Nucleotides: 202
Stems, first nucleotide, its partner, number of pairs: 003200007012193003015187005028173003031041001033090007050083002058075001060073001063070001081180001102166005107117003121159004130151002136145002
Number, partner (000 for none) and nucleotide at each position: 001000c002000a003200u004199g005198a006197u007196u008195a009194g010000g011000u012193c013192u014191g015187u016186g017185g018184u019183u020000g021000a022000a023000a024000g025000u026000c027000g028173a029172u030171g031041c032000c033090a034089g035088u036087c037086g038085c039084a040000g041031g042000c043000g044000a045000a046000a047000c048000g049000a050083c051082c052000c053000a054000c055000g056000u057000a058075a059000g060073u061000c062000a063070g064000a065000c066000a067000a068000a069000g070063u071000c072000u073060g074000a075058u076000g077000a078000g079000c080000a081180u082051g083050g084039u085038g086037c087036g088035g089034c090033u091000u092000a093000g094000a095000a096000g097000u098000a099000a100000g101000u102166c103165c104164u105163g106162c107117c108116g109115g110000u111000a112000a113000a114000a115109c116108c117107g118000a119000g120000a121159g122158g123157a124156g125000g126000a127000u128000u129000a130151g131150u132000g133000a134000g135000a136145g137144g138000c139000a140000u141000a142000c143000a144137c145136c146000u147000u148000a149000a150131g151130c152000a153000a154000a155000a156124c157123u158122c159121c160000c161000a162106g163105c164104a165103g166102g167000c168000g169000a170000g171030u172029g173028u174000g175000g176000g177000g178000g179000c180081a181000a182000a183019g184018a185017c186016c187015a188000g189000g190000u191014c192013a193012g194009c195008u196007a197006a198005u199004c200003a201000a202000u